[Rfam]
This 93-nucleotide RNA sequence from Hordeum vulgare belongs to the Rfam family "Small nucleolar RNA R64/Z200 family". Pairs were carried over by alignment from the consensus structure, which was predicted with PFOLD. It is annotated as a C/D-box small nucleolar RNA. Taxonomically the source falls in Hordeum vulgare (Eukaryota, Streptophytina, Poaceae, Hordeinae).
RNA sequence: UCGUUGUGGUGAUGAAUUAUGAGUUUUUGCAUGUUAGACUUCAGAGAUGCAUCUGGUGUCAAUGAGAAGUCAUAUCAUAUGCCUGAGCAAUGA
Numbered sequence: 001u002c003g004u005u006g007u008g009g010u011g012a013u014g015a016a017u018u019a020u021g022a023g024u025u026u027u028u029g030c031a032u033g034u035u036a037g038a039c040u041u042c043a044g045a046g047a048u049g050c051a052u053c054u055g056g057u058g059u060c061a062a063u064g065a066g067a068a069g070u071c072a073u074a075u076c077a078u079a080u081g082c083c084u085g086a087g088c089a090a091u092g093a
Stems, first nucleotide, its partner, number of pairs: 001093007046060004